A member of the RNA family "Ribosomal protein L10 leader" from Clostridium sp. JN-9, 126 nucleotides long. Rfam classes the family as a cis-regulatory leader. The literature on the family includes a 1994 paper in Prog Nucleic Acid Res Mol Biol by Zengel and Lindahl, "Diverse mechanisms for regulating ribosomal protein synthesis in Escherichia coli". A search with the family's covariance model found it, with a score of 66 bits. The base pairs follow the family's consensus structure, which was predicted with CMfinder. About the family: This family is a putative r-protein leader autoregulatory structure found in B. subtilis and other low-GC Gram-positive bacteria.
[Rfam]
RNA sequence: AAGUUGAAUAAAAAUUUUCCACAGACAGUAGGUGCAUAAGCGUAACCAUAAGGGCCUGCCGAGGAGAACAUAAUUGAUUACAAUUGGUCUCUUCAUGUCUAUGGAGGGACCUUUAAUUAUAUGAUU
Number, nucleotide and partner (000 for none) at each position: 001a000002a000003g000004u000005u000006g000007a000008a000009u000010a000011a000012a000013a000014a000015u000016u000017u000018u000019c000020c000021a000022c000023a000024g000025a000026c000027a000028g059029u058030a057031g056032g055033u054034g041035c040036a000037u000038a000039a000040g035041c034042g000043u000044a000045a000046c000047c000048a000049u000050a000051a000052g000053g000054g033055c032056c031057u030058g029059c028060c000061g000062a000063g000064g000065a000066g000067a000068a000069c000070a000071u000072a000073a000074u000075u000076g000077a000078u000079u000080a000081c000082a000083a000084u000085u000086g111087g110088u109089c108090u107091c106092u105093u104094c103095a102096u000097g000098u000099c000100u000101a000102u095103g094104g093105a092106g091107g090108g089109a088110c087111c086112u000113u000114u000115a000116a000117u000118u000119a000120u000121a000122u000123g000124a000125u000126u000